[Rfam]
RNA sequence: AGAUGAAACCUUGGAGAGACUCUUGAUGAGCACCGAAGGAGAAAGUCGUACGGCAAAACUCUCAGGUAAAAGGACAGGGAAAAGGAA
Numbered sequence: 001a002g003a004u005g006a007a008a009c010c011u012u013g014g015a016g017a018g019a020c021u022c023u024u025g026a027u028g029a030g031c032a033c034c035g036a037a038g039g040a041g042a043a044a045g046u047c048g049u050a051c052g053g054c055a056a057a058a059c060u061c062u063c064a065g066g067u068a069a070a071a072g073g074a075c076a077g078g079g080a081a082a083a084g085g086a087a
Stems, first nucleotide, its partner, number of pairs: 009079005020030003032067003035063002039061003045054002
The family of this 87-nucleotide sequence from Clostridium pasteurianum is "Glycine riboswitch aptamer". The base pairs follow the family's consensus structure. This family represents the bacterial glycine riboswitch.